[Rfam]
RNA sequence: UUAACUGAUAUUUGUAUGGAUGGAUCGUUUGCCUACGUUUGCCGCUAGGGGCGCUGUUCCAACUUCAUACAAAAUUGGGCUA
Dot-bracket structure: .......(..((((((.(.(((((.((....(((..((.....))..)))....)).))))..).).))))))..)......
Rfam assigns this 82-nucleotide RNA sequence from Bombyx mori to the family "mir-2807 microRNA precursor family".
The family's consensus secondary structure was predicted with RNAalifold.
It scores 62 bits against the family's covariance model.
A reference for the family is Liu et al. (2010), "MicroRNAs of Bombyx mori identified by Solexa sequencing", BMC Genomics.
Its family is annotated with RISC complex and miRNA-mediated post-transcriptional gene silencing in the Gene Ontology.